[Rfam]
RNA sequence: UCCUUCUUGCUAAAGCACUCUGCUAAAAUUGUGAGAUCCAAGUCUUUUGGCUUGGUUCCUGUGAUAAUGAAAGUCAGAGUACACCCAGGAAGGAGAGCAGCUGCACAGCAUCGAAAAUGAGACCAGGGUGGACCUCUUUCUUAAUGUCCGGUGUCCUUCGUCUCAAGACUCUGUGCAACAUUC
Numbered sequence: 001u002c003c004u005u006c007u008u009g010c011u012a013a014a015g016c017a018c019u020c021u022g023c024u025a026a027a028a029u030u031g032u033g034a035g036a037u038c039c040a041a042g043u044c045u046u047u048u049g050g051c052u053u054g055g056u057u058c059c060u061g062u063g064a065u066a067a068u069g070a071a072a073g074u075c076a077g078a079g080u081a082c083a084c085c086c087a088g089g090a091a092g093g094a095g096a097g098c099a100g101c102u103g104c105a106c107a108g109c110a111u112c113g114a115a116a117a118u119g120a121g122a123c124c125a126g127g128g129u130g131g132a133c134c135u136c137u138u139u140c141u142u143a144a145u146g147u148c149c150g151g152u153g154u155c156c157u158u159c160g161u162c163u164c165a166a167g168a169c170u171c172u173g174u175g176c177a178a179c180a181u182u183c
Stems, first nucleotide, its partner, number of pairs: 018079002021076002023073002028068004035058001038055007102177007125154001127152001129150004
Shown here is a 183-nucleotide RNA from Megalops atlanticus, a member of the family "Small nucleolar RNA SNORA81". On this family, see Gu et al., Nucleic Acids Res 2005: "A novel experimental approach for systematic identification of box H/ACA snoRNAs from eukaryotes". The family's consensus secondary structure was predicted with WAR. Rfam links the family to the GO terms nucleolus and RNA processing. The organism belongs to Megalops, within Eukaryota. Rfam classes the family as an H/ACA-box small nucleolar RNA.